Background
The family of this 110-nucleotide RNA sequence from Papaver somniferum is "Small nucleolar RNA snoR100".
RNA sequence: UAAUGAGGGAAGCAUGGUACUGUGUACGGAAAUUGAACAUUGGUACUAAUGUCUGCUUGCUCUGAUGCUUCUGGCUCUGAUUUUGCGGGCCUGGAAAUGUACCUACAUCU
Numbered sequence: 001u002a003a004u005g006a007g008g009g010a011a012g013c014a015u016g017g018u019a020c021u022g023u024g025u026a027c028g029g030a031a032a033u034u035g036a037a038c039a040u041u042g043g044u045a046c047u048a049a050u051g052u053c054u055g056c057u058u059g060c061u062c063u064g065a066u067g068c069u070u071c072u073g074g075c076u077c078u079g080a081u082u083u084u085g086c087g088g089g090c091c092u093g094g095a096a097a098u099g100u101a102c103c104u105a106c107a108u109c110u
Base pairs, nucleotide, nucleotide: 012025013024014023015022042091043090044089051081052080053079055075056074057073
A reference for the family is Marker et al. (2002), "Experimental RNomics: identification of 140 candidates for small non-messenger RNAs in the plant Arabidopsis thaliana", Curr Biol. The family has 9 seed sequences and 1,851 matches in Rfam 15.1.